[Rfam]
RNA sequence: UCCUGACAGCCCGCAUGGUGCGGUCUGACACUGGCCACGACAGGAGACAAACAUG
Numbered sequence: 001u002c003c004u005g006a007c008a009g010c011c012c013g014c015a016u017g018g019u020g021c022g023g024u025c026u027g028a029c030a031c032u033g034g035c036c037a038c039g040a041c042a043g044g045a046g047a048c049a050a051a052c053a054u055g
Base pairs, nucleotide, nucleotide: 002044003043004042005041007027008026009025011023
RNA: Mu-gpT-DE RNA